RNA sequence: AGCUCGUCGGGGUCGACGGCCCGGCUGGUGAGCAGAUAGUCGCGCAUCACGAUGCCGUGCCGGCCCUC
Numbered sequence: 001a002g003c004u005c006g007u008c009g010g011g012g013u014c015g016a017c018g019g020c021c022c023g024g025c026u027g028g029u030g031a032g033c034a035g036a037u038a039g040u041c042g043c044g045c046a047u048c049a050c051g052a053u054g055c056c057g058u059g060c061c062g063g064c065c066c067u068c
Base pairs, nucleotide, nucleotide: 004063005062006061008059009058012029013028016026035056037054038053040052041051042050044048
RNA: ASdes TB sRNA